The record is a 97-nucleotide RNA sequence, which matches "DUF3800-V RNA" in Rfam. Rfam's curators put it in the seed alignment.
RNA sequence: UAUGAUGAGCGGUAAGUCCGCUUUGGGUUGUUUGAGGUGUUCCCAUCCAUCUGGUUGGUUAAGCCUCAACGCAAAAAAUCCAGAGGGCGCGCUCAUU
Dot-bracket structure: .(((....((.............((((((.((((((((....(((.((....)).)))....)))))))......)))))))........)).))).